[Rfam]
RNA sequence: AGCUUCAUUCUAGAUGAGAAUGGGCACUGCUGAUCACGGUGUCCAAGAACUGUGAAUAUGGCUACAUUGAUAUGCAGUUGCUUCUAUCACAGUGUAUGCAAUGCAAUGGUGAUAGUGAGACCUGGAACAUUU
Numbered sequence: 001a002g003c004u005u006c007a008u009u010c011u012a013g014a015u016g017a018g019a020a021u022g023g024g025c026a027c028u029g030c031u032g033a034u035c036a037c038g039g040u041g042u043c044c045a046a047g048a049a050c051u052g053u054g055a056a057u058a059u060g061g062c063u064a065c066a067u068u069g070a071u072a073u074g075c076a077g078u079u080g081c082u083u084c085u086a087u088c089a090c091a092g093u094g095u096a097u098g099c100a101a102u103g104c105a106a107u108g109g110u111g112a113u114a115g116u117g118a119g120a121c122c123u124g125g126a127a128c129a130u131u132u
Stems, first nucleotide, its partner, number of pairs: 002062003007057002021045007075124003085111005
RNA: Small nucleolar RNA SNORA1
Organism: Carlito syrichta